[Rfam]
RNA sequence: GACUCCACGACGCCGAAUCGUAAUUGCACAAUUACGUACGGGGGAUUACUGGACCAAAAUCCAGGGUGAAUCUGUCACAAUUGGGACAGUAGGGCUCCUUCAGCCCGAACCAGCGAACUAACCUCGAAGGCAAUACCCGAAGGAAGG
Numbered sequence: 001g002a003c004u005c006c007a008c009g010a011c012g013c014c015g016a017a018u019c020g021u022a023a024u025u026g027c028a029c030a031a032u033u034a035c036g037u038a039c040g041g042g043g044g045a046u047u048a049c050u051g052g053a054c055c056a057a058a059a060u061c062c063a064g065g066g067u068g069a070a071u072c073u074g075u076c077a078c079a080a081u082u083g084g085g086a087c088a089g090u091a092g093g094g095c096u097c098c099u100u101c102a103g104c105c106c107g108a109a110c111c112a113g114c115g116a117a118c119u120a121a122c123c124u125c126g127a128a129g130g131c132a133a134u135a136c137c138c139g140a141a142g143g144a145a146g147g
Stems, first nucleotide, its partner, number of pairs: 012131003019036007039126005050063004065111002072089004092106004